The record is an 86-nucleotide RNA sequence from Clostridium carboxidivorans, which matches "ZMP/ZTP riboswitch aptamer (pfl RNA motif)" in Rfam.
Pairs were carried over by alignment from the consensus structure, which is taken from published work.
Taxonomically the source falls in Clostridium carboxidivorans (Bacteria, Bacillota, Clostridia, Clostridiaceae).

RNA sequence: UAAGAGUCGCACGACUGGCGGAAGUGGAGUUUACCACAGGGAGUGUGAUUUAUAAAGUAUAAAUGUCGACCGCCUGGGCAAAUGUG
Numbered sequence: 001u002a003a004g005a006g007u008c009g010c011a012c013g014a015c016u017g018g019c020g021g022a023a024g025u026g027g028a029g030u031u032u033a034c035c036a037c038a039g040g041g042a043g044u045g046u047g048a049u050u051u052a053u054a055a056a057g058u059a060u061a062a063a064u065g066u067c068g069a070c071c072g073c074c075u076g077g078g079c080a081a082a083u084g085u086g
Stems, first nucleotide, its partner, number of pairs: 004051009015040002017074005024037004064080004